A member of the RNA family "SAM riboswitch aptamer (S box leader)" from Bacillus anthracis, 107 nucleotides long. The source organism's lineage runs through Bacteria, Bacillati, Bacillaceae, Bacillus and Bacillus anthracis. Rfam describes the family as follows. The SAM riboswitch is found upstream of a number of genes which code for proteins involved in methionine or cysteine biosynthesis in Gram-positive bacteria. The family has 457 seed sequences and 9,625 matches in Rfam 15.1.

RNA sequence: UUCUUAUCCAGAGAGGUGGAGGGACUGGCCCUACGAUACCUCAGCAACGGGUUUUUUUAAUACCGUGCUAACUCCAGCAAGCCAUAUAAAGGCUUGGAAGAUGAGAA
Numbered sequence: 001u002u003c004u005u006a007u008c009c010a011g012a013g014a015g016g017u018g019g020a021g022g023g024a025c026u027g028g029c030c031c032u033a034c035g036a037u038a039c040c041u042c043a044g045c046a047a048c049g050g051g052u053u054u055u056u057u058u059a060a061u062a063c064c065g066u067g068c069u070a071a072c073u074c075c076a077g078c079a080a081g082c083c084a085u086a087u088a089a090a091g092g093c094u095u096g097g098a099a100g101a102u103g104a105g106a107a
Stems, first nucleotide, its partner, number of pairs: 001107008013042005021031003025077004043069004048065002051063002073099001078096006